This 107-nucleotide RNA sequence from Leersia perrieri belongs to the Rfam family "mir-393 microRNA precursor family". The pairing is the family consensus, mapped onto this sequence. The organism belongs to Leersia, within Eukaryota.
RNA sequence: UGGGGAAGCAUCCAAAGGGAUCGCAUUGAUCCUUCAUCUCGCUUUCCAUGGCGGUCGUCGUCUACAAGCAGAUCGAUGGAUCAUGCGAUCCUUUUGGAGGCUUCCUC
Numbered sequence: 001u002g003g004g005g006a007a008g009c010a011u012c013c014a015a016a017g018g019g020a021u022c023g024c025a026u027u028g029a030u031c032c033u034u035c036a037u038c039u040c041g042c043u044u045u046c047c048a049u050g051g052c053g054g055u056c057g058u059c060g061u062c063u064a065c066a067a068g069c070a071g072a073u074c075g076a077u078g079g080a081u082c083a084u085g086c087g088a089u090c091c092u093u094u095u096g097g098a099g100g101c102u103u104c105c106u107c
Base pairs, nucleotide, nucleotide: 002107003106004105005104006103008101009100011098012097013096014095015094016093017092018091019090020089021088023086024085025084026083028082029081030080031079032078
Dot-bracket structure: .(((((.((.(((((((((((.((((.(((((.............................................))))))))).))))))))))).)).)))))